[Rfam]
RNA sequence: CUCGUUGUGCGACCAACGGUAGCCUACGACGGCAUGCAUCACUGGCAACGGUGGUGUGUGAAGCCCGUCUGACAAUGUAGCCCCCACCUCGGGUGCAUUCUCUCCGCGAGGAGAGGUGCGGAGACUCGGAGCAGUGCCGGGUUGAGGCG
Numbered sequence: 001c002u003c004g005u006u007g008u009g010c011g012a013c014c015a016a017c018g019g020u021a022g023c024c025u026a027c028g029a030c031g032g033c034a035u036g037c038a039u040c041a042c043u044g045g046c047a048a049c050g051g052u053g054g055u056g057u058g059u060g061a062a063g064c065c066c067g068u069c070u071g072a073c074a075a076u077g078u079a080g081c082c083c084c085c086a087c088c089u090c091g092g093g094u095g096c097a098u099u100c101u102c103u104c105c106g107c108g109a110g111g112a113g114a115g116g117u118g119c120g121g122a123g124a125c126u127c128g129g130a131g132c133a134g135u136g137c138c139g140g141g142u143u144g145a146g147g148c149g
Stems, first nucleotide, its partner, number of pairs: 002019006028069005033060012084093002094120004104111002124142006
Dot-bracket structure: .((((((......))))))........(((((((((((((((((....))))))))))))....)))))..............((......))((((......((....)).....))))...((((((.......)))))).......
Shown here is a 149-nucleotide RNA from Pseudomonas putida, a member of the family "Group II catalytic intron D1-D4-7". Rfam 15.1 lists 1,296 matches to the family in 705 species. The literature on the family includes a 2003 paper in Crit Rev Biochem Mol Biol by Lehmann and Schmidt, "Group II introns: structure and catalytic versatility of large natural ribozymes". The sequence is in the family's curated seed alignment. Pairs were carried over by alignment from the consensus structure. Group II introns are found in rRNA, tRNA and mRNA of organelles in fungi, plants and protists, and also in mRNA in bacteria.